[Rfam]
RNA sequence: GCCGAGUUGAGUAACAACAACUUGUGACCCAAGUGGGGGCAAAAAGGUGAUGGAACAUGGCUUUGGCUUGUCAGGUUGGGCUGAAGGAUGCACUAUGCUGGCCUGUCCACUCCAAGUUGAGAGUUAGGCCAUGGGGUUUGGGCUAAGGCUCAGAUCUCCUGGUCUCUAGAAUGGAGGGAAACGCAUGAGGCUGGCUUCACAGAGCAGUGAACACCUCCUGCUCUUGACAGUGGAGGGAUAACAGGCUGCAGCUUUCUCAGCUCACAUAGCUUGGUGAGCCUAGCCCAUUGAACCAUCAUUUUU
Numbered sequence: 001g002c003c004g005a006g007u008u009g010a011g012u013a014a015c016a017a018c019a020a021c022u023u024g025u026g027a028c029c030c031a032a033g034u035g036g037g038g039g040c041a042a043a044a045a046g047g048u049g050a051u052g053g054a055a056c057a058u059g060g061c062u063u064u065g066g067c068u069u070g071u072c073a074g075g076u077u078g079g080g081c082u083g084a085a086g087g088a089u090g091c092a093c094u095a096u097g098c099u100g101g102c103c104u105g106u107c108c109a110c111u112c113c114a115a116g117u118u119g120a121g122a123g124u125u126a127g128g129c130c131a132u133g134g135g136g137u138u139u140g141g142g143c144u145a146a147g148g149c150u151c152a153g154a155u156c157u158c159c160u161g162g163u164c165u166c167u168a169g170a171a172u173g174g175a176g177g178g179a180a181a182c183g184c185a186u187g188a189g190g191c192u193g194g195c196u197u198c199a200c201a202g203a204g205c206a207g208u209g210a211a212c213a214c215c216u217c218c219u220g221c222u223c224u225u226g227a228c229a230g231u232g233g234a235g236g237g238a239u240a241a242c243a244g245g246c247u248g249c250a251g252c253u254u255u256c257u258c259a260g261c262u263c264a265c266a267u268a269g270c271u272u273g274g275u276g277a278g279c280c281u282a283g284c285c286c287a288u289u290g291a292a293c294c295a296u297c298a299u300u301u302u303u
Stems, first nucleotide, its partner, number of pairs: 001040003004023006028037003043303011056290002058287003061283002065279001068277010078263007086255001088254001090252001099248008107237002110235005116228009126165006133158011173218005184209003191202003

Annotation: The family of this 303-nucleotide RNA sequence from Trifolium pratense is "Plant signal recognition particle RNA". It scores 251 bits against the family's covariance model.